This 413-nucleotide RNA sequence from Hymenochirus boettgeri belongs to the Rfam family "Vertebrate telomerase RNA".
Clan: Telomerase clan.
From the family's description: Telomerase is a ribonucleoprotein reverse transcriptase that synthesises telomeric DNA. Telomerase RNAs differ greatly in sequence and structure between vertebrates, ciliates and yeasts, but they share a 5' pseudoknot structure close to the template sequence. Vertebrate telomerase RNAs have a 3' H/ACA snoRNA-like domain.
By type it is a non-coding RNA gene.
The family's consensus secondary structure is taken from published work.
It scores 183 bits against the family's covariance model.
A reference for the family is Chen et al. (2000), "Secondary structure of vertebrate telomerase RNA", Cell.
Gene Ontology terms of the family: telomerase catalytic core complex, telomere maintenance via telomerase and telomerase activity.
[Rfam]
RNA sequence: UUAGGUGAGUAGGAGGGUCUCAUGAUGCUUAACCCUAACCCUGUACAUUUUGCUCUUCCAUGAGUGCCCGUUGUUUUGCAGCUGACUUUCAGCGGGUAUGAAGAGCUACCGUAGACUCGAACUAAAAAACGUCAGCGGGAGACCCUUCUGUUCGCACGGCCUCGUUUCCCCGUAUUACUGAGCACCGAGUUAUCUCCAGAAAUGCUCCUGCGGCCCCCCGGUUAUACCGUUUGGGGCCGCGGUCAGUAUAAUCUGCUGUCGCGAAGAGUUCGUCUCUGUCAGCCCUUGGGGGCCUGGGGGCGGAAGGGAGAGUUCGGGACGGGGAGAUGGGAGAUAAACGGGACGGCGCUGUUACUUUACUCCAUGUGUUCCCUGAGUUGUGGGAUUCACGUGGACAGCGCGGCCCUACACCC
Numbered sequence: 001u002u003a004g005g006u007g008a009g010u011a012g013g014a015g016g017g018u019c020u021c022a023u024g025a026u027g028c029u030u031a032a033c034c035c036u037a038a039c040c041c042u043g044u045a046c047a048u049u050u051u052g053c054u055c056u057u058c059c060a061u062g063a064g065u066g067c068c069c070g071u072u073g074u075u076u077u078g079c080a081g082c083u084g085a086c087u088u089u090c091a092g093c094g095g096g097u098a099u100g101a102a103g104a105g106c107u108a109c110c111g112u113a114g115a116c117u118c119g120a121a122c123u124a125a126a127a128a129a130c131g132u133c134a135g136c137g138g139g140a141g142a143c144c145c146u147u148c149u150g151u152u153c154g155c156a157c158g159g160c161c162u163c164g165u166u167u168c169c170c171c172g173u174a175u176u177a178c179u180g181a182g183c184a185c186c187g188a189g190u191u192a193u194c195u196c197c198a199g200a201a202a203u204g205c206u207c208c209u210g211c212g213g214c215c216c217c218c219c220g221g222u223u224a225u226a227c228c229g230u231u232u233g234g235g236g237c238c239g240c241g242g243u244c245a246g247u248a249u250a251a252u253c254u255g256c257u258g259u260c261g262c263g264a265a266g267a268g269u270u271c272g273u274c275u276c277u278g279u280c281a282g283c284c285c286u287u288g289g290g291g292g293c294c295u296g297g298g299g300g301c302g303g304a305a306g307g308g309a310g311a312g313u314u315c316g317g318g319a320c321g322g323g324g325a326g327a328u329g330g331g332a333g334a335u336a337a338a339c340g341g342g343a344c345g346g347c348g349c350u351g352u353u354a355c356u357u358u359a360c361u362c363c364a365u366g367u368g369u370u371c372c373c374u375g376a377g378u379u380g381u382g383g384g385a386u387u388c389a390c391g392u393g394g395a396c397a398g399c400g401c402g403g404c405c406c407u408a409c410a411c412c413c
Base pairs, nucleotide, nucleotide: 002159004157005155006154007153008152009151010150011149012148013147014146015145016144017143018142019141020140052106053105054104055103056102065098066097067096068095069094070093071092072091073090081136082135083134084133085132086131087129088128089127162330163329164328165327166326167325168324201314202313203312205310206309207308208307209306215300216299217298218297219296220295221294225290227288238263239262240261241260242259244258245257246256247255265277266276267275268274341405342404344402346401347400348399349398350397351396352395364392365391366390367389368388370385371384372383373382